[Rfam]
Source information
Rfam assigns this 87-nucleotide RNA sequence from Burkholderiales bacterium PBB5 to the family "c-di-GMP-I riboswitch aptamer".

RNA sequence: CAUCGAAGAGGGCAAACCUGCCGAAAGGCAGGGACGCAAAGCCACCGGCCUACCGCGCGACUGCGCCAUGGCAGCGGGGUUGCCGAU
Numbered sequence: 001c002a003u004c005g006a007a008g009a010g011g012g013c014a015a016a017c018c019u020g021c022c023g024a025a026a027g028g029c030a031g032g033g034a035c036g037c038a039a040a041g042c043c044a045c046c047g048g049c050c051u052a053c054c055g056c057g058c059g060a061c062u063g064c065g066c067c068a069u070g071g072c073a074g075c076g077g078g079g080u081u082g083c084c085g086a087u
Stems, first nucleotide, its partner, number of pairs: 012037002017032006040081004045077003048072003055066004

Background: Taxonomically the source falls in Burkholderiales (Bacteria, Pseudomonadati, Pseudomonadota, Betaproteobacteria).